U7 small nuclear RNA: a 64-nucleotide RNA from Tupaia belangeri. On this family, see Spycher et al., Nucleic Acids Res 1994: "3' end processing of mouse histone pre-mRNA: evidence for additional base-pairing between U7 snRNA and pre-mRNA". Animal histone pre-mRNAs are spliced by a different mechanism than nuclear pre-mRNAs and self-splicing introns. This processing involves the U7 snRNP, which contains only one RNA species: U7. Pairs were carried over by alignment from the consensus structure, which was predicted with PFOLD.
RNA sequence: AAGUUUGUUUUGGUGCUUCUACAAUUUGUCUAACAGGUUUUCCAGUUUUUACUGGAAAGCCUCC
Numbered sequence: 001a002a003g004u005u006u007g008u009u010u011u012g013g014u015g016c017u018u019c020u021a022c023a024a025u026u027u028g029u030c031u032a033a034c035a036g037g038u039u040u041u042c043c044a045g046u047u048u049u050u051a052c053u054g055g056a057a058a059g060c061c062u063c064c
Stems, first nucleotide, its partner, number of pairs: 036061011